[Rfam]
RNA: Small nucleolar RNA SNORA84
Organism: Cisticola juncidis
Nucleotides: 132
Base pairs, nucleotide, nucleotide: 001056002055003054004053007050010047011046012045013044014043015042016041017040019037020036021035022034023033068124070122071121072120073119074118079114080113083109084108086106087105088104089103090102091101
Number, partner (000 for none) and nucleotide at each position: 001056g002055c003054c004053c005000u006000g007050u008000g009000g010047u011046u012045g013044c014043c015042g016041g017040a018000c019037g020036c021035u022034g023033c024000u025000g026000u027000g028000c029000c030000c031000g032000u033023g034022c035021g036020g037019c038000g039000c040017u041016c042015c043014g044013g045012u046011g047010g048000g049000a050007a051000a052000c053004g054003g055002g056001c057000c058000c059000a060000c061000a062000g063000u064000g065000a066000c067000g068124c069000u070122g071121u072120g073119a074118u075000g076000g077000a078000c079114g080113c081000a082000g083109g084108g085000g086106g087105g088104c089103u090102g091101u092000g093000a094000c095000c096000c097000c098000u099000g100000a101091g102090c103089a104088g105087c106086c107000c108084c109083c110000a111000c112000a113080g114079c115000c116000c117000g118074g119073u120072c121071a122070c123000a124068g125000g126000c127000a128000c129000a130000c131000c132000c